Rfam assigns this 168-nucleotide RNA from Vigna angularis to the family "small nucleolar RNA snoR143". Pairs were carried over by alignment from the consensus structure, which was predicted with RNAalifold.
[Rfam]
Nucleotides: 168
Stems, first nucleotide, its partner, number of pairs: 002059005010050002013048003017044005023038005103162008121144002123141003
Number, partner (000 for none) and nucleotide at each position: 001000a002059c003058g004057c005056a006055c007000c008000c009000u010050g011049u012000a013048u014047c015046g016000u017044a018043g019042g020041c021040c022000c023038c024037u025036c026035c027034g028000a029000u030000a031000a032000c033000g034027u035026g036025g037024a038023g039000a040021g041020g042019c043018c044017u045000u046015u047014g048013a049011g050010c051000u052000a053000u054000u055006g056005u057004g058003c059002g060000u061000a062000a063000a064000g065000u066000g067000a068000g069000a070000g071000c072000u073000g074000a075000u076000u077000c078000g079000u080000c081000a082000g083000c084000a085000g086000g087000c088000a089000g090000c091000c092000a093000g094000a095000c096000a097000a098000c099000u100000g101000c102000c103162g104161u105160g106159g107158u108157g109156g110155a111000u112000c113000c114000a115000c116000a117000g118000a119000u120000g121144a122143a123141c124140g125139g126000a127000u128000c129000u130000u131000u132000g133000u134000u135000a136000a137000u138000g139125c140124u141123g142000u143122u144121u145000g146000u147000c148000u149000a150000c151000u152000a153000a154000u155110u156109c157108c158107a159106c160105c161104a162103c163000a164000c165000a166000u167000c168000u

Taxonomically the source falls in Vigna angularis (Eukaryota, Viridiplantae, Gunneridae, Phaseoleae). The match comes from Rfam's covariance-model search (111 bits).